[Rfam]
RNA sequence: UCGGCCCCGGUUCACGCUGCCGCACCCCGCGGAAGCGACCCGGUGCC
Numbered sequence: 001u002c003g004g005c006c007c008c009g010g011u012u013c014a015c016g017c018u019g020c021c022g023c024a025c026c027c028c029g030c031g032g033a034a035g036c037g038a039c040c041c042g043g044u045g046c047c
Base pairs, nucleotide, nucleotide: 003047004046005045007043008042009041010040015037016036017035018034020032021031022030023029
Overview:
L31-Actinobacteria ribosomal protein leader: a 47-nucleotide RNA from Streptomyces glaucescens. Rfam classes the family as a cis-regulatory leader. It is one of the family's seed sequences.